[Rfam]
RNA sequence: CCGGUUCACGACCGCGCCCCCGCGUGGUCGACCCGG
Numbered sequence: 001c002c003g004g005u006u007c008a009c010g011a012c013c014g015c016g017c018c019c020c021c022g023c024g025u026g027g028u029c030g031a032c033c034c035g036g
Stems, first nucleotide, its partner, number of pairs: 001036004009030009